[Rfam]
Shown here is a 117-nucleotide sequence from Aminobacter sp. MSH1, a member of the family "Alphaproteobacterial ar14".
RNA sequence: AGAUACCCGGCGGGCGGUUCCUCCUCCCUCUGCCUGCCGGGCGAAGCGGCCAGCACCUCCUCCCGCUGGUCACACAAAGGAAAAGGCCGGCACCUCCUCCCGCCGGCCUUUUUCUUU
Number, nucleotide and partner (000 for none) at each position: 001a000002g000003a000004u000005a000006c000007c040008c039009g038010g000011c036012g035013g034014g033015c032016g031017g030018u000019u000020c000021c000022u000023c000024c000025u000026c000027c000028c000029u000030c017031u016032g015033c014034c013035u012036g011037c000038c009039g008040g007041g000042c000043g000044a000045a000046g000047c000048g071049g070050c069051c068052a067053g066054c000055a000056c000057c000058u000059c000060c000061u000062c000063c000064c000065g000066c053067u052068g051069g050070u049071c048072a000073c000074a000075c000076a000077a000078a000079g000080g000081a112082a111083a110084a109085g108086g107087c106088c105089g104090g103091c102092a000093c000094c000095u000096c000097c000098u000099c000100c000101c000102g091103c090104c089105g088106g087107c086108c085109u084110u083111u082112u081113u000114c000115u000116u000117u000

The base pairs follow the family's consensus structure. The family's RNA type in Rfam is small RNA. Its family is annotated with biological process involved in symbiotic interaction in the Gene Ontology. About the family: Smr14C2 was renamed NfeR1 (Nodule Formation Efficiency RNA) highly expressed in salt stress and during the symbiotic interaction on legume roots. Taxonomically the source falls in Aminobacter (Bacteria, Pseudomonadati, Hyphomicrobiales, Phyllobacteriaceae). The match comes from Rfam's covariance-model search (70 bits). The literature on the family includes a 2012 paper in RNA Biol by del Val et al., "A survey of sRNA families in alpha-proteobacteria".